[Rfam]
RNA sequence: AAAGAUCAGGUCCUGGCUGACUGCAUAUAUUGCUCAACGUUAAAGAAUGCUAAUAUUGCACUCGCCCCGGCCUGAUCGAU
Numbered sequence: 001a002a003a004g005a006u007c008a009g010g011u012c013c014u015g016g017c018u019g020a021c022u023g024c025a026u027a028u029a030u031u032g033c034u035c036a037a038c039g040u041u042a043a044a045g046a047a048u049g050c051u052a053a054u055a056u057u058g059c060a061c062u063c064g065c066c067c068c069g070g071c072c073u074g075a076u077c078g079a080u
Stems, first nucleotide, its partner, number of pairs: 004077009015067002019063002022060004027056005032050002

The family of this 80-nucleotide RNA from Caenorhabditis brenneri is "mir-235 microRNA precursor family".
Pairs were carried over by alignment from the consensus structure, which was predicted with RNAalifold.
A search with the family's covariance model found it, with a score of 76 bits.